[Rfam]
Nucleotides: 083
Base pairs, nucleotide, nucleotide: 012037013036017032018031019030020029021028022027040077041076042075043074047073048072049069050068051067056063057062
Number, partner (000 for none) and nucleotide at each position: 001000g002000a003000a004000u005000a006000a007000a008000a009000a010000u011000g012037g013036c014000a015000a016000a017032a018031c019030u020029a021028g022027g023000g024000a025000a026000a027022c028021u029020u030019a031018g032017u033000g034000a035000c036013g037012c038000a039000a040077a041076a042075c043074u044000a045000c046000a047073g048072g049069g050068g051067c052000u053000a054000a055000a056063a057062u058000a059000a060000a061000u062057a063056u064000u065000a066000u067051g068050c069049c070000a071000g072048c073047c074043a075042g076041u077040u078000g079000c080000c081000g082000a083000a
The family of this 83-nucleotide RNA from Clostridium collagenovorans is "c-di-GMP-I riboswitch aptamer". Rfam's curators write: GEMM was predicted in a large-scale screen for bacterial structured RNA regulatory elements. It scores 78 bits against the family's covariance model. The source organism's lineage runs through Bacteria, Bacillota, Clostridiaceae, Clostridium and Clostridium collagenovorans.